RNA sequence: ACAAAAAGCAUUAGCUUUUUGAACGUUGCUUGCAACGGCCCGUUAGGGUGAGCCAGUGAACAAAGUUCACUGGCGAAUAAAAUGAA
Numbered sequence: 001a002c003a004a005a006a007a008g009c010a011u012u013a014g015c016u017u018u019u020u021g022a023a024c025g026u027u028g029c030u031u032g033c034a035a036c037g038g039c040c041c042g043u044u045a046g047g048g049u050g051a052g053c054c055a056g057u058g059a060a061c062a063a064a065g066u067u068c069a070c071u072g073g074c075g076a077a078u079a080a081a082a083u084g085a086a
Stems, first nucleotide, its partner, number of pairs: 002021008024037005038049004052074009077083002
Aggregatibacter sRNA 22: an 86-nucleotide RNA from Gallibacterium salpingitidis. The base pairs follow the family's consensus structure, which was predicted with RNAfold. Rfam classes the family as a small RNA. The match comes from Rfam's covariance-model search (43 bits). The family has 7 seed sequences and 101 matches in Rfam 15.1.